[Rfam]
RNA sequence: UUUUUGCUGUGAUGACUUACCAAGGACGGUAUCUGAGCGAGGAAUCUAUCCUCGCAUGAUUAUACCUGAUCUGAGACAAAAUGUCUGAGCAAAUC
Numbered sequence: 001u002u003u004u005u006g007c008u009g010u011g012a013u014g015a016c017u018u019a020c021c022a023a024g025g026a027c028g029g030u031a032u033c034u035g036a037g038c039g040a041g042g043a044a045u046c047u048a049u050c051c052u053c054g055c056a057u058g059a060u061u062a063u064a065c066c067u068g069a070u071c072u073g074a075g076a077c078a079a080a081a082u083g084u085c086u087g088a089g090c091a092a093a094u095c
Stems, first nucleotide, its partner, number of pairs: 003093005037055006